Shown here is a 339-nucleotide sequence from Anaerococcus lactolyticus, a member of the family "Bacterial RNase P class A". Taxonomically the source falls in Anaerococcus lactolyticus (Bacteria, Bacillati, Tissierellia, Anaerococcus).
[Rfam]
RNA sequence: GGAGUAAAUCAGAUAAUCGCGGGGCAAUAGCAACGAGGAAAGUCCGUGCACCACAGAGCAAGGAUGCUUGAUAACGUCAAGUAGGAGUGAUCCUCAGGCAAGUGCAACAGAAAGUAUACCGCCAAAUUUGGUAAGGUUGGAAUGGUGAGGUAAGAGCUCACCAGCUGUCCUAGUGAUAGGCAGGCUAUGUAAACCCCAUCCGGUGCAAGAACAAAAUGGACAUUAGGAGGCUUGCUCGGCCCAGUCCGGAAAUGGUAGUUCGCUUGAACUUGCUAGCAAUAGUAAGUCUAGAUAGAUGAUUAUCCACGACAGAACACGGCUUAUAGGUUUACUCUUUAC
Numbered sequence: 001g002g003a004g005u006a007a008a009u010c011a012g013a014u015a016a017u018c019g020c021g022g023g024g025c026a027a028u029a030g031c032a033a034c035g036a037g038g039a040a041a042g043u044c045c046g047u048g049c050a051c052c053a054c055a056g057a058g059c060a061a062g063g064a065u066g067c068u069u070g071a072u073a074a075c076g077u078c079a080a081g082u083a084g085g086a087g088u089g090a091u092c093c094u095c096a097g098g099c100a101a102g103u104g105c106a107a108c109a110g111a112a113a114g115u116a117u118a119c120c121g122c123c124a125a126a127u128u129u130g131g132u133a134a135g136g137u138u139g140g141a142a143u144g145g146u147g148a149g150g151u152a153a154g155a156g157c158u159c160a161c162c163a164g165c166u167g168u169c170c171u172a173g174u175g176a177u178a179g180g181c182a183g184g185c186u187a188u189g190u191a192a193a194c195c196c197c198a199u200c201c202g203g204u205g206c207a208a209g210a211a212c213a214a215a216a217u218g219g220a221c222a223u224u225a226g227g228a229g230g231c232u233u234g235c236u237c238g239g240c241c242c243a244g245u246c247c248g249g250a251a252a253u254g255g256u257a258g259u260u261c262g263c264u265u266g267a268a269c270u271u272g273c274u275a276g277c278a279a280u281a282g283u284a285a286g287u288c289u290a291g292a293u294a295g296a297u298g299a300u301u302a303u304c305c306a307c308g309a310c311a312g313a314a315c316a317c318g319g320c321u322u323a324u325a326g327g328u329u330u331a332c333u334c335u336u337u338a339c
Base pairs, nucleotide, nucleotide: 001335002334003333004332005331006330007329008328009327010326011324012304013303014302015301016300017299018298020035021034024031025030040322041321042320044319045318046317047316048315049205050204051203052202058236062201063200064199065198066197067081068080069079070078071077082096083094084093085092086091097196098195102194103193104190105189106188119136120135121132122131123130124129144162145161146160147159148158149157164185165183166182167181169180170179171178172177209261210260211259212258219246220245221244229241230240231239232238268287269286270285271284272283273282274281275280